[Rfam]
The family of this 219-nucleotide RNA sequence from Enterococcus thailandicus is "T-box leader". From the family's description: Uncharged tRNA acts as the effector for transcription antitermination of genes in the T-box leader family.
RNA sequence: AAAAGAACCAUGACGAAAAAGAGUAGUUUGGCUAAACCAGAUCAGGGAGAUUUGUCAUAGACUGAAAGCAAAUUCUGUGUUUGAAAAAUGAAGUUCACUUUCUGAGUUCGCCUAGUUUUUGAUACUGGGCCGGCAAUUGUCGUUAAUCAAGUAAGUGUGUGAGUAGCUGAUAGCUUUACUCACAAAUUAGGAUGGUAUCGCGAAGACCUCGUUCCUUGA
Dot-bracket structure: ......((......((((.......((((........(((........((((((..............)))))))))........)))).........))))...))..(((((((.......)))))))(((......)))...............(((((((((.........)))))))))....((((.......((((.....))))))))...
Numbered sequence: 001a002a003a004a005g006a007a008c009c010a011u012g013a014c015g016a017a018a019a020a021g022a023g024u025a026g027u028u029u030g031g032c033u034a035a036a037c038c039a040g041a042u043c044a045g046g047g048a049g050a051u052u053u054g055u056c057a058u059a060g061a062c063u064g065a066a067a068g069c070a071a072a073u074u075c076u077g078u079g080u081u082u083g084a085a086a087a088a089u090g091a092a093g094u095u096c097a098c099u100u101u102c103u104g105a106g107u108u109c110g111c112c113u114a115g116u117u118u119u120u121g122a123u124a125c126u127g128g129g130c131c132g133g134c135a136a137u138u139g140u141c142g143u144u145a146a147u148c149a150a151g152u153a154a155g156u157g158u159g160u161g162a163g164u165a166g167c168u169g170a171u172a173g174c175u176u177u178a179c180u181c182a183c184a185a186a187u188u189a190g191g192a193u194g195g196u197a198u199c200g201c202g203a204a205g206a207c208c209u210c211g212u213u214c215c216u217u218g219a
Stems, first nucleotide, its partner, number of pairs: 007107002015102004026089004038077003049074006110130007131142003158184009189216004200212004

Background:
A reference for the family is Gerdeman et al. (2003), "Solution structure of the Bacillus subtilis T-box antiterminator RNA: seven nucleotide bulge characterized by stacking and flexibility", J Mol Biol.